[Rfam]
RNA sequence: UUUCUGCUGUGAUGAAUUCAUGAAAAUUUCACAUGUCAGACUUCAGAGAGAAAUCUAUGAGAAGAUAUUCAUGUAUCCUGAGCAGAAU
Dot-bracket structure: .((((((........................................((....))..........................)))))).
Numbered sequence: 001u002u003u004c005u006g007c008u009g010u011g012a013u014g015a016a017u018u019c020a021u022g023a024a025a026a027u028u029u030c031a032c033a034u035g036u037c038a039g040a041c042u043u044c045a046g047a048g049a050g051a052a053a054u055c056u057a058u059g060a061g062a063a064g065a066u067a068u069u070c071a072u073g074u075a076u077c078c079u080g081a082g083c084a085g086a087a088u
Stems, first nucleotide, its partner, number of pairs: 002087006048055002
Description:
This 88-nucleotide sequence from Capsicum annuum belongs to the Rfam family "Small nucleolar RNA R64/Z200 family". The family's consensus secondary structure was predicted with PFOLD. It scores 78 bits against the family's covariance model. A reference for the family is Galardi et al. (2002), "Purified box C/D snoRNPs are able to reproduce site-specific 2'-O-methylation of target RNA in vitro", Mol Cell Biol.